Shown here is a 302-nucleotide RNA from Mycobacterium triviale, a member of the family "Mycobacterium smegmatis small RNA 1". About the family: Mycobacterium smegmatis small RNA 1 is highly expressed during stationary phase of growth. It scores 233 bits against the family's covariance model. Its family is annotated with RNA polymerase binding in the Gene Ontology. A reference for the family is Hnilicova et al. (2014), "Ms1, a novel sRNA interacting with the RNA polymerase core in mycobacteria", Nucleic Acids Res.
RNA sequence: ACGGAAGCCCGGAGCGGCCAAGGUCCAGCCGGAAGAGAAGGCUCGAUCUCCCAAACCGGGCGACCCAGCACGGACCCCGGUACCCACGGGGAGCCACAGCCGCGAUAAUGGCAGAAGUGUUGCGGGCCUGCGUUAUUGCGAAAAGCGGUCGGUGCCGAGACCCUUUGGGUGGGGUCGCAGCCGAAGCGCAUCGCGAGACCGCCGAGGCCACCCACGCAGCCCACGUGUCGCACGCCUGGUAACCGGGUUCCGUGCUAGCGGGCGGCGAGUCGCGAUCAGCGAGGAGCCGCCCGCUUCAUUUG
Numbered sequence: 001a002c003g004g005a006a007g008c009c010c011g012g013a014g015c016g017g018c019c020a021a022g023g024u025c026c027a028g029c030c031g032g033a034a035g036a037g038a039a040g041g042c043u044c045g046a047u048c049u050c051c052c053a054a055a056c057c058g059g060g061c062g063a064c065c066c067a068g069c070a071c072g073g074a075c076c077c078c079g080g081u082a083c084c085c086a087c088g089g090g091g092a093g094c095c096a097c098a099g100c101c102g103c104g105a106u107a108a109u110g111g112c113a114g115a116a117g118u119g120u121u122g123c124g125g126g127c128c129u130g131c132g133u134u135a136u137u138g139c140g141a142a143a144a145g146c147g148g149u150c151g152g153u154g155c156c157g158a159g160a161c162c163c164u165u166u167g168g169g170u171g172g173g174g175u176c177g178c179a180g181c182c183g184a185a186g187c188g189c190a191u192c193g194c195g196a197g198a199c200c201g202c203c204g205a206g207g208c209c210a211c212c213c214a215c216g217c218a219g220c221c222c223a224c225g226u227g228u229c230g231c232a233c234g235c236c237u238g239g240u241a242a243c244c245g246g247g248u249u250c251c252g253u254g255c256u257a258g259c260g261g262g263c264g265g266c267g268a269g270u271c272g273c274g275a276u277c278a279g280c281g282a283g284g285a286g287c288c289g290c291c292c293g294c295u296u297c298a299u300u301u302g
Stems, first nucleotide, its partner, number of pairs: 003065002007061006016052002021049002025045001027043004067256008077246005084239003088235001090233001093231002099112003119220006125209005130202003136196006145189003149184005159176006258294009270282003